The family of this 321-nucleotide RNA sequence from Sordaria macrospora is "A. fumigatus sRNA Afu_309".
By type it is a small RNA.
The source organism's lineage runs through Eukaryota, Opisthokonta, Fungi, Sordariaceae and Sordaria.

RNA sequence: CUUUUUUUUCUCCUCACGGACCUGUGCCCAGUGCUCCUCUGUCGCCCAGCUCGUGCUUGCACUUGUAGGGUAGCUAGGGUUGAUGUGCUGAGGCAGUUCGGCAACCAAGGAGCCAUCCAGGACUUUUUAACAGGAGUUCUUCCAUGAUGUCAAUUUCCAGCCGACAAGUCACCAGAAGAACCGAACUCUGGCGUGAACCUCGUUCGCCGCAAGGCUUGAGCUUGGGGAGGGCCAGAUGAUGUAGGGGAAGUCAUAUUCCAAUCCGUUCGCCGAGGACGUCGUCCUAUGAGGCUGGGGGAAACCAUGACAAUUGCCACAUUU
Number, nucleotide and partner (000 for none) at each position: 001c000002u000003u000004u000005u000006u000007u000008u000009u000010c000011u000012c000013c000014u000015c000016a000017c000018g172019g170020a169021c168022c000023u166024g165025u164026g094027c093028c092029c090030a089031g088032u000033g086034c085035u083036c082037c079038u078039c077040u076041g075042u000043c073044g000045c070046c069047c068048a000049g066050c065051u000052c000053g062054u061055g060056c000057u000058u000059g000060c055061a054062c053063u000064u000065g050066u049067a000068g047069g046070g045071u000072a000073g043074c000075u041076a040077g039078g038079g037080u000081u000082g036083a035084u000085g034086u033087g000088c031089u030090g029091a000092g028093g027094c026095a000096g000097u000098u000099c000100g000101g000102c163103a000104a000105c160106c000107a000108a000109g151110g150111a000112g148113c000114c146115a145116u144117c000118c000119a000120g000121g000122a000123c000124u000125u000126u000127u000128u000129a000130a000131c000132a000133g000134g000135a000136g000137u000138u000139c000140u000141u000142c000143c000144a116145u115146g114147a000148u112149g000150u110151c109152a000153a000154u000155u000156u000157c000158c000159a000160g105161c000162c000163g102164a025165c024166a023167a000168g021169u020170c019171a000172c018173c000174a000175g000176a000177a000178g000179a000180a242181c241182c000183g000184a000185a000186c238187u236188c235189u234190g233191g232192c000193g000194u000195g000196a000197a000198c000199c000200u000201c225202g221203u220204u219205c218206g217207c214208c213209g000210c000211a000212a000213g208214g207215c000216u000217u206218g205219a204220g203221c202222u000223u000224g000225g201226g000227g000228a000229g000230g000231g000232c191233c190234a189235g188236a187237u000238g186239a000240u000241g181242u180243a000244g000245g000246g000247g314248a000249a312250g308251u307252c306253a305254u304255a000256u000257u000258c000259c000260a000261a000262u000263c297264c296265g000266u294267u000268c000269g292270c291271c290272g000273a000274g284275g283276a282277c281278g000279u000280c000281g277282u276283c275284c274285u000286a000287u000288g000289a000290g271291g270292c269293u000294g266295g000296g264297g263298g000299a000300a000301a000302c000303c000304a254305u253306g252307a251308c250309a000310a000311u000312u249313g000314c247315c000316a000317c000318a000319u000320u000321u000